[Rfam]
RNA sequence: CUCGCUAUUGAUUGUCCAAACGCAAUUCUUGUGUUUUUCCAAAUCGGACCCCGAGAAUUGUAGAUGGACAUCCUUAGCUGG
Numbered sequence: 001c002u003c004g005c006u007a008u009u010g011a012u013u014g015u016c017c018a019a020a021c022g023c024a025a026u027u028c029u030u031g032u033g034u035u036u037u038u039c040c041a042a043a044u045c046g047g048a049c050c051c052c053g054a055g056a057a058u059u060g061u062a063g064a065u066g067g068a069c070a071u072c073c074u075u076a077g078c079u080g081g
Stems, first nucleotide, its partner, number of pairs: 002080001004078004010072003014069005022061010
This 81-nucleotide RNA from Scyliorhinus torazame belongs to the Rfam family "mir-219 microRNA precursor family". The base pairs follow the family's consensus structure, which was predicted with RNAalifold. Lineage of the source: Eukaryota > Vertebrata > Selachii > Galeomorphii > Scyliorhinus. A search with the family's covariance model found it, with a score of 66 bits. Gene Ontology terms of the family: RISC complex and miRNA-mediated post-transcriptional gene silencing.